RNA sequence: GACAACUGAUAAAUGGAUGUUAGGAAUGAAGUCAUCAUGCUGACUGAAACUAACAGCUUGAUACUCCUGCAUGCCUCUCAAAUUUGUAGAUUUGAUUGGUAUGAAGCCAGGUAAAGUCGGCUGAACUUAAUCUAAGUAAUAUGAAAAUAUAAUAUGGUUAAGGAUAGGCCGGAGCGCUAUAAA
Numbered sequence: 001g002a003c004a005a006c007u008g009a010u011a012a013a014u015g016g017a018u019g020u021u022a023g024g025a026a027u028g029a030a031g032u033c034a035u036c037a038u039g040c041u042g043a044c045u046g047a048a049a050c051u052a053a054c055a056g057c058u059u060g061a062u063a064c065u066c067c068u069g070c071a072u073g074c075c076u077c078u079c080a081a082a083u084u085u086g087u088a089g090a091u092u093u094g095a096u097u098g099g100u101a102u103g104a105a106g107c108c109a110g111g112u113a114a115a116g117u118c119g120g121c122u123g124a125a126c127u128u129a130a131u132c133u134a135a136g137u138a139a140u141a142u143g144a145a146a147a148u149a150u151a152a153u154a155u156g157g158u159u160a161a162g163g164a165u166a167g168g169c170c171g172g173a174g175c176g177c178u179a180u181a182a183a
Stems, first nucleotide, its partner, number of pairs: 018055006031045001056175004066111004070103006078095006118171005126162006133143002148156003
RNA: Group II catalytic intron D1-D4-5
Organism: Alkalihalophilus pseudofirmus